[Rfam]
RNA: Glycine riboswitch aptamer
Organism: Clostridium sp. CAG:1024
RNA sequence: ACUCUGGAGAAUCCCGUACAGCGGGUGCCGAAGGUGCAAGGCAGGCGAAUGCAAUUUUGCAGGCCGAAUCUCUCAGGCAAAAGGACAGAGU
Numbered sequence: 001a002c003u004c005u006g007g008a009g010a011a012u013c014c015c016g017u018a019c020a021g022c023g024g025g026u027g028c029c030g031a032a033g034g035u036g037c038a039a040g041g042c043a044g045g046c047g048a049a050u051g052c053a054a055u056u057u058u059g060c061a062g063g064c065c066g067a068a069u070c071u072c073u074c075a076g077g078c079a080a081a082a083g084g085a086c087a088g089a090g091u
Stems, first nucleotide, its partner, number of pairs: 001091006013025004027078003030074002034072001036070001040065002